Annotation
This 106-nucleotide sequence from Camelus ferus belongs to the Rfam family "Small nucleolar RNA SNORD90". NCBI's taxonomy places the organism under Eukaryota, Euteleostomi, Sarcopterygii, Tylopoda, Camelus. It scores 62 bits against the family's covariance model. Rfam links the family to the GO terms nucleolus and RNA processing. About the family: snoRNA HBII-295 belongs to the family of C/D snoRNAs. The family's RNA type in Rfam is C/D-box small nucleolar RNA.
[Rfam]
RNA sequence: AACCUUGAUUUUAGUCUAAUGAUGAAUCUCAUAGGGCAGAUUCUGGGAUGAAAAUUUAAUUCAUCACUGAUAUUCCUACUAUUGGCACCACGGGAGCCUCUAGCGU
Numbered sequence: 001a002a003c004c005u006u007g008a009u010u011u012u013a014g015u016c017u018a019a020u021g022a023u024g025a026a027u028c029u030c031a032u033a034g035g036g037c038a039g040a041u042u043c044u045g046g047g048a049u050g051a052a053a054a055u056u057u058a059a060u061u062c063a064u065c066a067c068u069g070a071u072a073u074u075c076c077u078a079c080u081a082u083u084g085g086c087a088c089c090a091c092g093g094g095a096g097c098c099u100c101u102a103g104c105g106u
Base pairs, nucleotide, nucleotide: 013099014098015095016094017093027087028085029084031082032081033077034076035075036074039071042070043069045067047065048064049063050062051061052060